[Rfam]
RNA: S15-Flavobacteria ribosomal protein leader
RNA sequence: UAUAUUUGCCCCCUAUUUUAGUUAAUAGAAUAUCAUACAUAAUAAUCAUUUAAAUAAUAUUGGAAUG
Numbered sequence: 001u002a003u004a005u006u007u008g009c010c011c012c013c014u015a016u017u018u019u020a021g022u023u024a025a026u027a028g029a030a031u032a033u034c035a036u037a038c039a040u041a042a043u044a045a046u047c048a049u050u051u052a053a054a055u056a057a058u059a060u061u062g063g064a065a066u067g
Stems, first nucleotide, its partner, number of pairs: 014032006